The record is a 78-nucleotide RNA sequence from Vombatus ursinus, which matches "Small nucleolar RNA SNORD72" in Rfam.
Pairs were carried over by alignment from the consensus structure.
Rfam describes the family as follows. snoRNA HBII-240 belongs to the CD family of snoRNAs. It is the human orthologue of the mouse MBII-240 and is predicted to guide 2'O-ribose methylation of the large 28S rRNA at residue U4590.
It is annotated as a C/D-box small nucleolar RNA.
The source organism's lineage runs through Eukaryota, Gnathostomata, Diprotodontia, Vombatidae and Vombatus.
On this family, see Huttenhofer et al., EMBO J 2001: "RNomics: an experimental approach that identifies 201 candidates for novel, small, non-messenger RNAs in mouse".
RNA sequence: AGCUUAUCCAUGAUGCACUUUAAAAAAUGUCUGAACAUAUGAAUUAAUAGUGAUUUCAGCAUUUACCUGAGAUAAGCU
Numbered sequence: 001a002g003c004u005u006a007u008c009c010a011u012g013a014u015g016c017a018c019u020u021u022a023a024a025a026a027a028u029g030u031c032u033g034a035a036c037a038u039a040u041g042a043a044u045u046a047a048u049a050g051u052g053a054u055u056u057c058a059g060c061a062u063u064u065a066c067c068u069g070a071g072a073u074a075a076g077c078u
Stems, first nucleotide, its partner, number of pairs: 002077007